[Rfam]
Shown here is a 91-nucleotide sequence from Streptomyces sp. SDr-06, a member of the family "ZMP/ZTP riboswitch aptamer (pfl RNA motif)". NCBI's taxonomy places the organism under Bacteria, Bacillati, Actinomycetota, Kitasatosporales, Streptomyces.
RNA sequence: UGUACGCACGGCGACUGGCGAGCGGGGAACCGACCCCGGGGGAGCCGUGCGCGGCCUGCCGCACGAGGUGCCGCCCGCCUGGGCACCCCGG
Numbered sequence: 001u002g003u004a005c006g007c008a009c010g011g012c013g014a015c016u017g018g019c020g021a022g023c024g025g026g027g028a029a030c031c032g033a034c035c036c037c038g039g040g041g042g043a044g045c046c047g048u049g050c051g052c053g054g055c056c057u058g059c060c061g062c063a064c065g066a067g068g069u070g071c072c073g074c075c076c077g078c079c080u081g082g083g084c085a086c087c088c089c090g091g
Stems, first nucleotide, its partner, number of pairs: 003053001005051008015041002017079004024037004068086005